[Rfam]
RNA sequence: UAUUUCCUUCGGGGUCGGGUGUAAUUCCCAACCGGCGGUGAUGAAGCAAAGCGCUUCUUAGUCCGUGACCCGCUAUUGCGGUGGAUCUGGUGAAACUCCAGGGCCGACAGUAAAAGUCUGGAUGGGAGAAGGAAUAA
Numbered sequence: 001u002a003u004u005u006c007c008u009u010c011g012g013g014g015u016c017g018g019g020u021g022u023a024a025u026u027c028c029c030a031a032c033c034g035g036c037g038g039u040g041a042u043g044a045a046g047c048a049a050a051g052c053g054c055u056u057c058u059u060a061g062u063c064c065g066u067g068a069c070c071c072g073c074u075a076u077u078g079c080g081g082u083g084g085a086u087c088u089g090g091u092g093a094a095a096c097u098c099c100a101g102g103g104c105c106g107a108c109a110g111u112a113a114a115a116g117u118c119u120g121g122a123u124g125g126g127a128g129a130a131g132g133a134a135u136a137a
Stems, first nucleotide, its partner, number of pairs: 004134007017029003031117002033106002035066004061104002070081002086102005108120003
Rfam assigns this 137-nucleotide RNA from Bacillus taeanensis to the family "FMN riboswitch aptamer (RFN element)".
Rfam's curators write: The RFN element is a highly conserved domain that is found frequently in the 5'-untranslated regions of prokaryotic mRNAs that encode for flavin mononucleotide (FMN) biosynthesis and transport proteins.